[Rfam]
RNA sequence: UGUGUCCGCUGGGGGAGCGUUAUGCUGAGAUCGUAGAGUAUUCUACGGACCCCUUGAACCUGUCCAGGUAAUGCUGGCGUAGGGAAAGCGGGUUUCCGCCGUA
Number, nucleotide and partner (000 for none) at each position: 001u000002g000003u000004g000005u000006c091007c090008g089009c088010u087011g053012g052013g051014g050015g000016a000017g025018c024019g023020u000021u000022a000023u019024g018025c017026u000027g000028a000029g000030a000031u000032c047033g046034u045035a044036g043037a000038g000039u000040a000041u000042u000043c036044u035045a034046c033047g032048g000049a000050c014051c013052c012053c011054u000055u000056g000057a000058a000059c083060c082061u081062g080063u000064c077065c076066a075067g074068g000069u000070a000071a000072u000073g000074c067075u066076g065077g064078c000079g000080u062081a061082g060083g059084g000085a000086a000087a010088g009089c008090g007091g006092g000093u000094u000095u000096c000097c000098g000099c000100c000101g000102u000103a000
Rfam assigns this 103-nucleotide RNA from Calorimonas adulescens to the family "TPP riboswitch aptamer (THI element)". Lineage of the source: Bacteria > Bacillati > Thermoanaerobacterales > Thermoanaerobacteraceae > Calorimonas.